A member of the RNA family "Small nucleolar RNA SNORA69" from Ceyx cyanopectus, 131 nucleotides long.
From the family's description: U69 is a member of the H/ACA class of small nucleolar RNAs (snoRNAs) which act as guides in the the modification of uridines to pseudouridines.
NCBI's taxonomy places the organism under Eukaryota, Bilateria, Aves, Alcedinidae, Ceyx.
Rfam links the family to the GO terms nucleolus and RNA processing.
The family's consensus secondary structure was predicted with PFOLD.
Rfam classes the family as an H/ACA-box small nucleolar RNA.
RNA sequence: GAAGCAGGUGCAAUUUCAGUGCUUCCUGCCGUGGCAGUGCUGCCAUUUCCCUGCUGAGAGCAACCCUGUUAGCUCUGCCUGCAGCUUCACCUGGCCAGUGGUGAGACUGCUGCUUUGUAACAUGGACAGGU
Numbered sequence: 001g002a003a004g005c006a007g008g009u010g011c012a013a014u015u016u017c018a019g020u021g022c023u024u025c026c027u028g029c030c031g032u033g034g035c036a037g038u039g040c041u042g043c044c045a046u047u048u049c050c051c052u053g054c055u056g057a058g059a060g061c062a063a064c065c066c067u068g069u070u071a072g073c074u075c076u077g078c079c080u081g082c083a084g085c086u087u088c089a090c091c092u093g094g095c096c097a098g099u100g101g102u103g104a105g106a107c108u109g110c111u112g113c114u115u116u117g118u119a120a121c122a123u124g125g126a127c128a129g130g131u
Stems, first nucleotide, its partner, number of pairs: 003055006017042007025034001064125002067122005081110004086105006